[Rfam]
RNA sequence: GUUAGCCAUUAAGCCUUUGUUAGCGAACACCCGCUAACCUGCCGUUAUCCAGUCACCUGGAUCCCGAGCGGCACGGCCGCUCUGUUUGACGCCUCCCUGUUGACUUCAGAGCCGCUGCAAAGCGGCUCUUUUUUU
Numbered sequence: 001g002u003u004a005g006c007c008a009u010u011a012a013g014c015c016u017u018u019g020u021u022a023g024c025g026a027a028c029a030c031c032c033g034c035u036a037a038c039c040u041g042c043c044g045u046u047a048u049c050c051a052g053u054c055a056c057c058u059g060g061a062u063c064c065c066g067a068g069c070g071g072c073a074c075g076g077c078c079g080c081u082c083u084g085u086u087u088g089a090c091g092c093c094u095c096c097c098u099g100u101u102g103a104c105u106u107c108a109g110a111g112c113c114g115c116u117g118c119a120a121a122g123c124g125g126c127u128c129u130u131u132u133u134u135u
Stems, first nucleotide, its partner, number of pairs: 001043001003041002005014002017037001021036005047062004066082006088101004108129009

Notes
This 135-nucleotide RNA from Hyphomicrobium album belongs to the Rfam family "Alphaproteobacterial sRNA BjrC1505". Taxonomically the source falls in Hyphomicrobium (Bacteria, Pseudomonadati, Pseudomonadota, Hyphomicrobiales). Rfam classes the family as a small RNA. The literature on the family includes a 2012 paper in RNA Biol by Madhugiri et al., "Small RNAs of the Bradyrhizobium/Rhodopseudomonas lineage and their analysis".